[Rfam]
RNA sequence: GCAGAGGGCCGGAUGGCCGCGGCUCCGGAUCUGGUCCGGGGCCGAGGAAAGUCCGGACUCCACAAGGCAACGGUGCCGGGUAACGCCCGGCCGGGGAAACCCGAGGGAAAGCGCCACAGAGAACAAACCGCUUCCGGCGUGCCGGAAGCAAGGGUGAAAAGGUGGGGUAAGAGCCCACCGCGGACCUGGCAACAGGGACGGCAUGGCAAGCCCCACCGGGAGCAAUGCCGAAUAGGAAUGCCGCGCGGGAAUGAUCCCUUCGGGGAUAUCGCCGCAGGGCCGCCUUGGCCCCGGGCGUUCGGGUUGGCAGCUAGAGGAAAUCCGGCAACGGGUUUCCGAGAGGAAUGGUCAUCCAGGGCCGGAUCACGAUCCGGCCUGGACAGAAUCCGGCUUACAGGCCCUCUGCGCAG
Numbered sequence: 001g002c003a004g005a006g007g008g009c010c011g012g013a014u015g016g017c018c019g020c021g022g023c024u025c026c027g028g029a030u031c032u033g034g035u036c037c038g039g040g041g042c043c044g045a046g047g048a049a050a051g052u053c054c055g056g057a058c059u060c061c062a063c064a065a066g067g068c069a070a071c072g073g074u075g076c077c078g079g080g081u082a083a084c085g086c087c088c089g090g091c092c093g094g095g096g097a098a099a100c101c102c103g104a105g106g107g108a109a110a111g112c113g114c115c116a117c118a119g120a121g122a123a124c125a126a127a128c129c130g131c132u133u134c135c136g137g138c139g140u141g142c143c144g145g146a147a148g149c150a151a152g153g154g155u156g157a158a159a160a161g162g163u164g165g166g167g168u169a170a171g172a173g174c175c176c177a178c179c180g181c182g183g184a185c186c187u188g189g190c191a192a193c194a195g196g197g198a199c200g201g202c203a204u205g206g207c208a209a210g211c212c213c214c215a216c217c218g219g220g221a222g223c224a225a226u227g228c229c230g231a232a233u234a235g236g237a238a239u240g241c242c243g244c245g246c247g248g249g250a251a252u253g254a255u256c257c258c259u260u261c262g263g264g265g266a267u268a269u270c271g272c273c274g275c276a277g278g279g280c281c282g283c284c285u286u287g288g289c290c291c292c293g294g295g296c297g298u299u300c301g302g303g304u305u306g307g308c309a310g311c312u313a314g315a316g317g318a319a320a321u322c323c324g325g326c327a328a329c330g331g332g333u334u335u336c337c338g339a340g341a342g343g344a345a346u347g348g349u350c351a352u353c354c355a356g357g358g359c360c361g362g363a364u365c366a367c368g369a370u371c372c373g374g375c376c377u378g379g380a381c382a383g384a385a386u387c388c389g390g391c392u393u394a395c396a397g398g399c400c401c402u403c404u405g406c407g408c409a410g
Stems, first nucleotide, its partner, number of pairs: 001406010011395001012353007020044009049393003053390005058222004066286002071218005076090005091105001092103004106213002111211002113207003128153002130149008161179006180202001181200002185196004226309004236300006277291005317336008
RNA: Bacterial RNase P class A
Organism: Salinihabitans flavidus